[Rfam]
RNA sequence: UAUGGGUAACCCGAAAACCAUAUUAAUAGAGUAGGGG
Numbered sequence: 001u002a003u004g005g006g007u008a009a010c011c012c013g014a015a016a017a018c019c020a021u022a023u024u025a026a027u028a029g030a031g032u033a034g035g036g037g
Base pairs, nucleotide, nucleotide: 002021003020004019005018010036011035012034
RNA: DUF805b RNA